[Rfam]
RNA sequence: AGCCCACGAGAACCAUUUGAAUCACUACGCUACUUGAUUCAAAUGGUUCUCACAA
Numbered sequence: 001a002g003c004c005c006a007c008g009a010g011a012a013c014c015a016u017u018u019g020a021a022u023c024a025c026u027a028c029g030c031u032a033c034u035u036g037a038u039u040c041a042a043a044u045g046g047u048u049c050u051c052a053c054a055a
Stems, first nucleotide, its partner, number of pairs: 008051017
Shown here is a 55-nucleotide sequence from Asimitellaria formosana, a member of the family "Plastid-ccsA-ndhD-1 3UTR RNA".
The base pairs follow the family's consensus structure, which was predicted with LocARNA.
Clan: Plastid-ccsA_ndhD 3UTR RNA clan.
Plastid-ccsA-ndhD-1 is a non-coding RNA (ncRNA) recognised in plastids.
The source organism's lineage runs through Eukaryota, Streptophytina, Tracheophyta, Gunneridae and Asimitellaria.